[Rfam]
RNA sequence: CUUAGCCGGGGUAUGCCAAUCCACUUUUAUGGUAUAUCCACGGACAAAAAAGGAGGAAUCAUCAACCCGCAGACUUGCGGUGCGGUAUUGUGGAGACAUAUCGCAAUGCGGCGGCCAGGCCCGGCUGCCGUGAGGGUGCGCGCGCGGAGGCGGCGCAGUCAGAGUCGAAAAACAUGGCA
Numbered sequence: 001c002u003u004a005g006c007c008g009g010g011g012u013a014u015g016c017c018a019a020u021c022c023a024c025u026u027u028u029a030u031g032g033u034a035u036a037u038c039c040a041c042g043g044a045c046a047a048a049a050a051a052g053g054a055g056g057a058a059u060c061a062u063c064a065a066c067c068c069g070c071a072g073a074c075u076u077g078c079g080g081u082g083c084g085g086u087a088u089u090g091u092g093g094a095g096a097c098a099u100a101u102c103g104c105a106a107u108g109c110g111g112c113g114g115c116c117a118g119g120c121c122c123g124g125c126u127g128c129c130g131u132g133a134g135g136g137u138g139c140g141c142g143c144g145c146g147g148a149g150g151c152g153g154c155g156c157a158g159u160c161a162g163a164g165u166c167g168a169a170a171a172a173c174a175u176g177g178c179a
Stems, first nucleotide, its partner, number of pairs: 006042001009039010067080004072166005081105008090097002108131009134160002137157005143152003
The family of this 179-nucleotide RNA sequence is "malK-I RNA".
It is one of the family's seed sequences.
Rfam classes the family as a cis-regulatory element.